The record is a 244-nucleotide RNA sequence from Streptomyces caelestis, which matches "Streptomyces sRNA 4677" in Rfam.
On this family, see Hindra et al., PLoS One 2014: "Complex intra-operonic dynamics mediated by a small RNA in Streptomyces coelicolor".
It is annotated as a small RNA.
Located in the intergenic region between anti-sigma factor SCO4677 gene and a putative regulatory protein gene SCO4676. scr4677 expression requires the SCO4677 activity and scr4677 sRNA itself seem to affect the levels of the SCO4676-associated transcripts.
The base pairs follow the family's consensus structure.
NCBI's taxonomy places the organism under Bacteria, Bacillati, Actinomycetota, Streptomycetaceae, Streptomyces.
The match comes from Rfam's covariance-model search (219 bits).
RNA sequence: AGCCCCGGUGCCGUCGGCGCCUUACCAAGCAAGAACUCAAGGGGAAAACACCCCACCAAGCCCCACCCUUUCCCGCCCGAGGCACGUGAUCACUCGGGCGGGUGAACAUCACCGGCUCAGCUGGAUUUCCGCACCCCCGACACCCUUACGCUCAGCGCACACCACCCGAAAAAGACUUCGGCCCCCGCCGGGACUGGCAUCCCGGUGCGAGGGCCUGACCACCCAGGAAGAACGGACCUUCCCG
Numbered sequence: 001a002g003c004c005c006c007g008g009u010g011c012c013g014u015c016g017g018c019g020c021c022u023u024a025c026c027a028a029g030c031a032a033g034a035a036c037u038c039a040a041g042g043g044g045a046a047a048a049c050a051c052c053c054c055a056c057c058a059a060g061c062c063c064c065a066c067c068c069u070u071u072c073c074c075g076c077c078c079g080a081g082g083c084a085c086g087u088g089a090u091c092a093c094u095c096g097g098g099c100g101g102g103u104g105a106a107c108a109u110c111a112c113c114g115g116c117u118c119a120g121c122u123g124g125a126u127u128u129c130c131g132c133a134c135c136c137c138c139g140a141c142a143c144c145c146u147u148a149c150g151c152u153c154a155g156c157g158c159a160c161a162c163c164a165c166c167c168g169a170a171a172a173a174g175a176c177u178u179c180g181g182c183c184c185c186c187g188c189c190g191g192g193a194c195u196g197g198c199a200u201c202c203c204g205g206u207g208c209g210a211g212g213g214c215c216u217g218a219c220c221a222c223c224c225a226g227g228a229a230g231a232a233c234g235g236a237c238c239u240u241c242c243c244g
Stems, first nucleotide, its partner, number of pairs: 007223004016077004090105006120156005180215005186209003190203004226242005